Shown here is a 70-nucleotide sequence from Staphylococcus epidermidis, a member of the family "S. aureus tsr31 small RNA".
[Rfam]
RNA sequence: UCCUUUAAUUAGGACACGUGUAUUAAAUAGAUACGCUCCCCUUACAAUUGCUGUGAGAGGGAGCGAUUUU
Numbered sequence: 001u002c003c004u005u006u007a008a009u010u011a012g013g014a015c016a017c018g019u020g021u022a023u024u025a026a027a028u029a030g031a032u033a034c035g036c037u038c039c040c041c042u043u044a045c046a047a048u049u050g051c052u053g054u055g056a057g058a059g060g061g062a063g064c065g066a067u068u069u070u
Stems, first nucleotide, its partner, number of pairs: 001014004034065007041057006

The match comes from Rfam's covariance-model search (81 bits). The organism belongs to Staphylococcus epidermidis, within Bacteria.